[Rfam]
RNA sequence: AUCCCAGGAAGAUGAGAGCGAUAUUAUAUUUAGUCUGUUCUCUUUAGUUUAAUCACUAAAAUGGAUCCAUUGGAUCCGUUUACGAUUAUACUUAUUUUUGUACCUGGGAGAAUUGUCACUGGGCUUGCUCACACUCUUCUCCACAGUGUCUCUGGUAUUACACUGCCUCCAGAUGACGCGAAAACCA
Number, nucleotide and partner (000 for none) at each position: 001a022002u021003c000004c000005c000006a000007g000008g000009a000010a000011g000012a000013u000014g000015a000016g000017a000018g000019c000020g000021a002022u001023a000024u000025u000026a000027u000028a000029u000030u000031u000032a000033g000034u000035c000036u000037g000038u000039u000040c000041u000042c000043u060044u059045u058046a057047g056048u000049u000050u000051a000052a000053u000054c000055a000056c047057u046058a045059a044060a043061a000062u078063g077064g076065a075066u074067c073068c072069a000070u000071u000072g068073g067074a066075u065076c064077c063078g062079u000080u000081u000082a000083c000084g000085a000086u000087u000088a000089u000090a000091c000092u000093u000094a000095u000096u000097u000098u000099u000100g000101u000102a000103c000104c000105u000106g000107g142108g141109a140110g139111a138112a137113u000114u000115g000116u000117c000118a000119c000120u131121g130122g129123g128124c000125u000126u000127g000128c123129u122130c121131a120132c000133a000134c000135u000136c000137u112138u111139c110140u109141c108142c107143a000144c000145a000146g179147u178148g177149u176150c175151u173152c172153u171154g170155g169156u000157a000158u000159u000160a000161c000162a000163c000164u000165g000166c000167c000168u000169c155170c154171a153172g152173a151174u000175g150176a149177c148178g147179c146180g000181a000182a000183a000184a000185c000186c000187a000
The record is a 187-nucleotide sequence from Ascobolus immersus, which matches "U2 spliceosomal RNA" in Rfam. The family is grouped with related families in Rfam's "U2 clan". It scores 86 bits against the family's covariance model. Rfam's curators write: U2 is a small nuclear RNA (snRNA) component of the spliceosome (involved in pre-mRNA splicing). Complementary binding between U2 snRNA (in an area lying towards the 5' end but 3' to hairpin I) and the branchpoint sequence (BPS) of the intron results the bulging out of an unpaired adenosine, on the BPS, which initiates a nucleophilic attack at the intronic 5' splice site, thus starting the first of two transesterification reactions that mediate splicing. NCBI's taxonomy places the organism under Eukaryota, Ascomycota, Pezizomycetes, Ascobolaceae, Ascobolus immersus.